[Rfam]
RNA: Small nucleolar RNA SNORA69
Organism: Regulus satrapa
Nucleotides: 132
Base pairs, nucleotide, nucleotide: 003056004055005054006053007052008051018043019042020041021040022039023038024037025036026035065126066125068123069122070121071120072119073118074117075116083110084109085108086107087106088105089104090103091102092101
Number, partner (000 for none) and nucleotide at each position: 001000a002000c003056a004055g005054c006053a007052g008051g009000c010000u011000g012000c013000a014000a015000u016000u017000g018043c019042a020041g021040c022039g023038c024037u025036c026035c027000c028000u029000g030000c031000u032000g033000u034000g035026g036025g037024a038023g039022u040021g041020c042019u043018g044000c045000c046000a047000u048000u049000u050000u051008c052007c053006u054005g055004c056003u057000g058000a059000g060000a061000g062000c063000a064000a065126c066125u067000c068123u069122g070121u071120u072119a073118a074117c075116a076000c077000u078000g079000c080000c081000u082000g083110u084109g085108c086107u087106u088105u089104c090103a091102c092101c093000c094000g095000c096000g097000c098000c099000g100000u101092g102091g103090u104089g105088a106087a107086a108085g109084c110083a111000g112000c113000u114000c115000u116075u117074g118073u119072u120071a121070a122069c123068a124000c125066g126065g127000a128000c129000a130000a131000g132000u